[Rfam]
RNA sequence: UGGAUAGAUUAUUGCAUUCAACUGUAUUCACGGCGUGAAACAGGGGAUUACAUUGAUUUUAAAUGGAAAGUGAAUCAAUUAAAAUAAUAGACUCCU
Number, nucleotide and partner (000 for none) at each position: 001u000002g095003g094004a093005u000006a000007g000008a000009u090010u089011a088012u087013u086014g085015c000016a000017u082018u081019c000020a080021a079022c000023u077024g076025u000026a075027u074028u073029c072030a071031c070032g000033g000034c065035g064036u063037g059038a058039a057040a000041c055042a054043g053044g000045g000046g000047a000048u000049u000050a000051c000052a000053u043054u042055g041056a000057u039058u038059u037060u000061a000062a000063a036064u035065g034066g000067a000068a000069a000070g031071u030072g029073a028074a027075u026076c024077a023078a000079u021080u020081a018082a017083a000084a000085u014086a013087a012088u011089a010090g009091a000092c000093u004094c003095c002096u000
A member of the RNA family "MIR6152 microRNA precursor family" from Nicotiana attenuata, 96 nucleotides long.
NCBI's taxonomy places the organism under Eukaryota, Embryophyta, Gunneridae, Solanales, Nicotiana.